[Rfam]
RNA sequence: GCCCUGUGGUUACUGGAUGCUGUUGUGCAGGUACAGCUCUCCAGUGGAUAUGAGGGGCUAGAGCAAUCCUGUGAUACAUGCAUGGAGGCUGUUUCUCCUCAGCAGCUGCCAUAGCCCGGUCACUGAUACAUGU
Numbered sequence: 001g002c003c004c005u006g007u008g009g010u011u012a013c014u015g016g017a018u019g020c021u022g023u024u025g026u027g028c029a030g031g032u033a034c035a036g037c038u039c040u041c042c043a044g045u046g047g048a049u050a051u052g053a054g055g056g057g058c059u060a061g062a063g064c065a066a067u068c069c070u071g072u073g074a075u076a077c078a079u080g081c082a083u084g085g086a087g088g089c090u091g092u093u094u095c096u097c098c099u100c101a102g103c104a105g106c107u108g109c110c111a112u113a114g115c116c117c118g119g120u121c122a123c124u125g126a127u128a129c130a131u132g133u
Base pairs, nucleotide, nucleotide: 001058002057003056004055007050008049010047011046012045013044014043015042016041017040019037020036021035022034023033069125071123072122073121074120075119080115081114082112083111084110085109087107088106089105090104091103092102093101

The family of this 133-nucleotide RNA from Bison bison is "Small nucleolar RNA SNORA84". The match comes from Rfam's covariance-model search (140 bits). Rfam 15.1 lists 757 matches to the family in 629 species. NCBI's taxonomy places the organism under Eukaryota, Teleostomi, Dipnotetrapodomorpha, Bovidae, Bison bison. By type it is an H/ACA-box small nucleolar RNA. Rfam links the family to the GO terms RNA processing and nucleolus. On this family, see Marker et al., Curr Biol 2002: "Experimental RNomics: identification of 140 candidates for small non-messenger RNAs in the plant Arabidopsis thaliana". The base pairs follow the family's consensus structure, which was predicted with WAR.